[Rfam]
A member of the RNA family "Small nucleolar RNA R12" from Helianthus annuus, 103 nucleotides long. On this family, see Chen et al., Nucleic Acids Res 2003: "The high diversity of snoRNAs in plants: identification and comparative study of 120 snoRNA genes from Oryza sativa". snoR12 is a C/D box small nucleolar RNA, which acts as a methylation guide for 25S ribosomal RNA in plants. snoR12 has been alternatively named snoZ44 in Arabidopsis and snoZ131 in rice.
RNA sequence: AUGAGGAUGAUGAAAUAAAUCAUUCGGAUUCCCAAUGAUUUUCUCUUUAUAAUAGUUUUUAUUUGAAGAGAUAGGUGAUCUUACAACUUCAUUUCUGACUCAU
Numbered sequence: 001a002u003g004a005g006g007a008u009g010a011u012g013a014a015a016u017a018a019a020u021c022a023u024u025c026g027g028a029u030u031c032c033c034a035a036u037g038a039u040u041u042u043c044u045c046u047u048u049a050u051a052a053u054a055g056u057u058u059u060u061a062u063u064u065g066a067a068g069a070g071a072u073a074g075g076u077g078a079u080c081u082u083a084c085a086a087c088u089u090c091a092u093u094u095c096u097g098a099c100u101c102a103u
Stems, first nucleotide, its partner, number of pairs: 001103005
The organism belongs to Helianthus, within Eukaryota.